[Rfam]
RNA: U11 spliceosomal RNA
Organism: Erinaceus europaeus
RNA sequence: AAAAAGGGCUUCUGUCAUGAAUGACAUAGGUAGGACAGCUCCUUUGCUCUAUGUGCAGAAUCAACAUCAGGAGAUUUCAGAAGCAUAAUUUUUGUUUGGGCAGCUGGUGAUCGUUGGUCCCAGAGCCCUU
Numbered sequence: 001a002a003a004a005a006g007g008g009c010u011u012c013u014g015u016c017a018u019g020a021a022u023g024a025c026a027u028a029g030g031u032a033g034g035a036c037a038g039c040u041c042c043u044u045u046g047c048u049c050u051a052u053g054u055g056c057a058g059a060a061u062c063a064a065c066a067u068c069a070g071g072a073g074a075u076u077u078c079a080g081a082a083g084c085a086u087a088a089u090u091u092u093u094g095u096u097u098g099g100g101c102a103g104c105u106g107g108u109g110a111u112c113g114u115u116g117g118u119c120c121c122a123g124a125g126c127c128c129u130u
Base pairs, nucleotide, nucleotide: 008084009083010082011081012080013026014025015024016023017022027055028054030052031051032050033049034048036046037045038044058077059076060075061074062073098128099127100126101125104123105122106121107120109119110118111117112116